Shown here is a 103-nucleotide RNA from Enterococcus rivorum, a member of the family "azaaromatic riboswitch aptamer (yjdF RNA)". A search with the family's covariance model found it, with a score of 72 bits. Pairs were carried over by alignment from the consensus structure, which is taken from published work. The source organism's lineage runs through Bacteria, Bacillati, Bacilli, Lactobacillales and Enterococcus.
RNA sequence: UAAAAAGAGUAUAAAAACACAUUUUUUGGUUUGUAGUCCAAAGCAAUGAUGAAUUGUCAGUAACCUUCCCCUCCUUGGGUCGUCCAUUACUCUUUUAAACAAU
Number, nucleotide and partner (000 for none) at each position: 001u000002a000003a000004a095005a094006a093007g092008a091009g090010u089011a088012u000013a000014a000015a000016a000017a000018c000019a000020c000021a000022u042023u000024u000025u000026u041027u040028g039029g038030u000031u000032u000033g000034u000035a000036g000037u000038c029039c028040a027041a026042a022043g057044c056045a055046a054047u053048g000049a000050u000051g000052a000053a047054u046055u045056g044057u043058c000059a000060g000061u000062a000063a000064c000065c000066u000067u000068c079069c078070c077071c000072u000073c000074c000075u000076u000077g070078g069079g068080u000081c000082g000083u000084c000085c000086a000087u000088u011089a010090c009091u008092c007093u006094u005095u004096u000097a000098a000099a000100c000101a000102a000103u000